[Rfam]
Small nucleolar RNA SNORA73 family: a 222-nucleotide RNA sequence from Bagarius yarrelli. The family's consensus secondary structure is taken from published work. A search with the family's covariance model found it, with a score of 175 bits. From the family's description: U17 (SNORA73A and SNORA73B) also known as E1 belongs to the H/ACA class of small nucleolar RNAs (snoRNAs).

RNA sequence: CCAACGUGGACAUCCCAUGUGAGUCGGUCCUCACGUGGCUCUGUCCGUGUGGCGUAUGGGAGCGUAGCACUAAAGUGCCAUGACGUACAGUCCCGUUCCAUGACGUUGGAUAGCAUGCAUGUCCCCGGCAUUUAGCUGGUGAGGACGGCGUCCUGUAUAUUCCUAGGUCUUUCCAGAGCCUCACGGCAGUUACUGGGGAGGUAAACCAUGCAGUGUACAAUC
Dot-bracket structure: ((((((((((((.((..((.(........).))...))...)))))..((((.....(((((.((.(.............)...)).)..))))...)))).)))))))...........................................((((((..........((((((...(((....))).......)))))).......)))))).........